The family of this 95-nucleotide sequence from Tenacibaculum soleae is "TPP riboswitch aptamer (THI element)". Gene Ontology term of the family: thiamine pyrophosphate binding. The organism belongs to Tenacibaculum, within Bacteria.
RNA sequence: CGUAAACUUUAGGAGUAGCUAUUAAAUUAGUUUGAGAAAAAUCCUUAGAACCUGAUUUGGUUAAUACCAACGGAGGGAAAAGUUAUCUUCGAUAU
Numbered sequence: 001c002g003u004a005a006a007c008u009u010u011a012g013g014a015g016u017a018g019c020u021a022u023u024a025a026a027u028u029a030g031u032u033u034g035a036g037a038a039a040a041a042u043c044c045u046u047a048g049a050a051c052c053u054g055a056u057u058u059g060g061u062u063a064a065u066a067c068c069a070a071c072g073g074a075g076g077g078a079a080a081a082g083u084u085a086u087c088u089u090c091g092a093u094a095u
Stems, first nucleotide, its partner, number of pairs: 006083005011045004016039001017032005051076003057070004